[Rfam]
RNA sequence: UGCCUGUGAUGAUAACAUUGAAGGCUUGUUUCUCAGAGACAUUCGCAGUGGCCGCCUAAGAUCUUUCGCCUUUCGCCGGGCUUGAGAGAUUGUGCUGUUUUAUCCUUCCUUGGAUGUCUGAGGCA
Numbered sequence: 001u002g003c004c005u006g007u008g009a010u011g012a013u014a015a016c017a018u019u020g021a022a023g024g025c026u027u028g029u030u031u032c033u034c035a036g037a038g039a040c041a042u043u044c045g046c047a048g049u050g051g052c053c054g055c056c057u058a059a060g061a062u063c064u065u066u067c068g069c070c071u072u073u074c075g076c077c078g079g080g081c082u083u084g085a086g087a088g089a090u091u092g093u094g095c096u097g098u099u100u101u102a103u104c105c106u107u108c109c110u111u112g113g114a115u116g117u118c119u120g121a122g123g124c125a
Stems, first nucleotide, its partner, number of pairs: 001125004062089006
RNA: Small nucleolar RNA SNORD14
Organism: Helianthus annuus